[Rfam]
RNA sequence: GCCUUGCGAACGAGGCCAGUGCGAGAUAUCAAAGGCUGAUGUAGCUCUCCUUCUCGCGGGAAGGUCUGAGGCGUCGCGCCGUCUUCCGUAAGGGAGGUGCCUUGAGAGAAGGCAGAGGGUAACAGAGAGAACUUCGUCGUGGCCGCUUGCCUGUGGAGGUCCCCCGGGGCCGAGGGUGAGCUGCGGCGAAAUGAGACUGAACCCUCAGCGAGCGCGUGUAGCGAGAUUGGCAUCGAUACCCAAUUCAGACUACGCUCGCAGGAC
Numbered sequence: 001g002c003c004u005u006g007c008g009a010a011c012g013a014g015g016c017c018a019g020u021g022c023g024a025g026a027u028a029u030c031a032a033a034g035g036c037u038g039a040u041g042u043a044g045c046u047c048u049c050c051u052u053c054u055c056g057c058g059g060g061a062a063g064g065u066c067u068g069a070g071g072c073g074u075c076g077c078g079c080c081g082u083c084u085u086c087c088g089u090a091a092g093g094g095a096g097g098u099g100c101c102u103u104g105a106g107a108g109a110a111g112g113c114a115g116a117g118g119g120u121a122a123c124a125g126a127g128a129g130a131a132c133u134u135c136g137u138c139g140u141g142g143c144c145g146c147u148u149g150c151c152u153g154u155g156g157a158g159g160u161c162c163c164c165c166g167g168g169g170c171c172g173a174g175g176g177u178g179a180g181c182u183g184c185g186g187c188g189a190a191a192u193g194a195g196a197c198u199g200a201a202c203c204c205u206c207a208g209c210g211a212g213c214g215c216g217u218g219u220a221g222c223g224a225g226a227u228u229g230g231c232a233u234c235g236a237u238a239c240c241c242a243a244u245u246c247a248g249a250c251u252a253c254g255c256u257c258g259c260a261g262g263a264c
Stems, first nucleotide, its partner, number of pairs: 002262002007258003015231004021057005026042006066248005077210003083097005098114006115206005120199001133190003
RNA: Nuclear RNase P
Organism: Echinococcus granulosus